This 154-nucleotide RNA from Pseudescherichia vulneris belongs to the Rfam family "Bacterial antisense RNA HPnc0260". For this family Rfam cites "The primary transcriptome of the major human pathogen Helicobacter pylori" (Sharma et al., Nature, 2010). The organism belongs to Pseudescherichia vulneris, within Bacteria.
RNA sequence: AGAACACUAGAGUAUAGACGCCAUGAAUCAGAGGUCAGCAUUGAAAUAGUAAACGGGUAAGAUGAGAUACGGGAAGCAAAACUGAAGAAAAAGCACCAAAUCACAGGAGAUGAUUUGGUGCGUCCGAGUGGACUCGAACCACCGACCCCCACCA
Dot-bracket structure: .......................((....((.(.....).))....))..............((............)).....................................(((.(....((.((((.......))))))..).)))...
The base pairs follow the family's consensus structure, which was predicted with CMfinder.